[Rfam]
RNA sequence: CCGCCCGUCACACCACGGGAGCUGGCUCUGCCCGAAGUCGCUAUCCCAACCCCCGGAAGGGGGAGGGAGGCGCCGACGGCAGGGCUGGUGACUGGGGUGAAGUCGUAACAAGGUAUCCCUACCGGAAGGUGGGGAUGGAUCACCUCCUUU
Numbered sequence: 001c002c003g004c005c006c007g008u009c010a011c012a013c014c015a016c017g018g019g020a021g022c023u024g025g026c027u028c029u030g031c032c033c034g035a036a037g038u039c040g041c042u043a044u045c046c047c048a049a050c051c052c053c054c055g056g057a058a059g060g061g062g063g064a065g066g067g068a069g070g071c072g073c074c075g076a077c078g079g080c081a082g083g084g085c086u087g088g089u090g091a092c093u094g095g096g097g098u099g100a101a102g103u104c105g106u107a108a109c110a111a112g113g114u115a116u117c118c119c120u121a122c123c124g125g126a127a128g129g130u131g132g133g134g135a136u137g138g139a140u141c142a143c144c145u146c147c148u149u150u
Stems, first nucleotide, its partner, number of pairs: 001112001003109001006105002011099004016094003021089012037074001039072004044068004050063005114137010
The record is a 150-nucleotide part of an RNA from Thermodesulfatator indicus, which matches "Bacterial small subunit ribosomal RNA" in Rfam. Gene Ontology terms of the family: structural constituent of ribosome and ribosome. It is one of the family's seed sequences.